RNA sequence: CCUCUUCAAAUCCGCUGCGCACGCCCCUAUAUCGGUCGUGCCGGGCUUGCCCGGCUAUGGUGAUAAAUGAUGUCGCGAAAUAGAUGCAGCGGACCCGGGGGCGGUACCCGGCGGCUCCACCACGAAGCCCGGUUUUCGGACUUCAUGACGGGGCCGAACUAGGAUCGACGUGUAUUCAAAGGCGAUGUUUUUGCCCGGCCUGAAUGAGCCGUAAAACCGUUCAAACUCACAAGUGCUAACGAUAACGAAGCACUCGCGAUCGCCGCGUAACCUAGUCCUCACGGACAAAGUUACUUAGGCUUAGCGCGGUUCGGUCCGCACCGGGCAACAGAAGCGGAAUCC
Numbered sequence: 001c002c003u004c005u006u007c008a009a010a011u012c013c014g015c016u017g018c019g020c021a022c023g024c025c026c027c028u029a030u031a032u033c034g035g036u037c038g039u040g041c042c043g044g045g046c047u048u049g050c051c052c053g054g055c056u057a058u059g060g061u062g063a064u065a066a067a068u069g070a071u072g073u074c075g076c077g078a079a080a081u082a083g084a085u086g087c088a089g090c091g092g093a094c095c096c097g098g099g100g101g102c103g104g105u106a107c108c109c110g111g112c113g114g115c116u117c118c119a120c121c122a123c124g125a126a127g128c129c130c131g132g133u134u135u136u137c138g139g140a141c142u143u144c145a146u147g148a149c150g151g152g153g154c155c156g157a158a159c160u161a162g163g164a165u166c167g168a169c170g171u172g173u174a175u176u177c178a179a180a181g182g183c184g185a186u187g188u189u190u191u192u193g194c195c196c197g198g199c200c201u202g203a204a205u206g207a208g209c210c211g212u213a214a215a216a217c218c219g220u221u222c223a224a225a226c227u228c229a230c231a232a233g234u235g236c237u238a239a240c241g242a243u244a245a246c247g248a249a250g251c252a253c254u255c256g257c258g259a260u261c262g263c264c265g266c267g268u269a270a271c272c273u274a275g276u277c278c279u280c281a282c283g284g285a286c287a288a289a290g291u292u293a294c295u296u297a298g299g300c301u302u303a304g305c306g307c308g309g310u311u312c313g314g315u316c317c318g319c320a321c322c323g324g325g326c327a328a329c330a331g332a333a334g335c336g337g338a339a340u341c342c
Base pairs, nucleotide, nucleotide: 040055041054042053043052044051059195060194061193062192063191070188071187072186073185074184075183076182085174086173087172089171090170091169095111096110097109098108099107112156113155114154115153116152117151118150196211197210198209199208201223202222203221307323308322309321310320313340315338316337317336318335
RNA: Alphaproteobacteria transfer-messenger RNA